MIR2617 microRNA precursor family: an 88-nucleotide sequence from Medicago truncatula. The match comes from Rfam's covariance-model search (59 bits). The family's consensus secondary structure was predicted with RNAalifold.
[Rfam]
RNA sequence: AUGUGAUGUGACAUGCCGGUUUGGGUUUUACUCUGAUGUUGAAUUGUUAUUAUUUAAUUGAUUUUGGAAAACGGGGUGUUACAGUAUU
Numbered sequence: 001a002u003g004u005g006a007u008g009u010g011a012c013a014u015g016c017c018g019g020u021u022u023g024g025g026u027u028u029u030a031c032u033c034u035g036a037u038g039u040u041g042a043a044u045u046g047u048u049a050u051u052a053u054u055u056a057a058u059u060g061a062u063u064u065u066g067g068a069a070a071a072c073g074g075g076g077u078g079u080u081a082c083a084g085u086a087u088u
Base pairs, nucleotide, nucleotide: 003087004086005085007083008082009081010080011079012078013077014076016075017074019072020071021070